[Rfam]
The family of this 125-nucleotide RNA from Jaculus jaculus is "Small nucleolar RNA SNORA65". The literature on the family includes a 2001 paper in EMBO J by Huttenhofer et al., "RNomics: an experimental approach that identifies 201 candidates for novel, small, non-messenger RNAs in mouse". A search with the family's covariance model found it, with a score of 74 bits. The base pairs follow the family's consensus structure, which was predicted with RNAalifold. Lineage of the source: Eukaryota > Euteleostomi > Mammalia > Glires > Jaculus.
RNA sequence: UUAGCCACCUGACCAGUUCUUGUUGGUUGGUACAGUCCAGUGGUGAGCUGACAGUAUACCCCAGCUUUCAGGAAACAGGGUUGUUUUUCAUGUGAAUGAUUUGUGCCAACAGCAUAGGAACAGCU
Dot-bracket structure: (..........(((((.(......).))))).......)...................((..((((....((...((((.(..(((.......)))..)))))..))...))).).)).......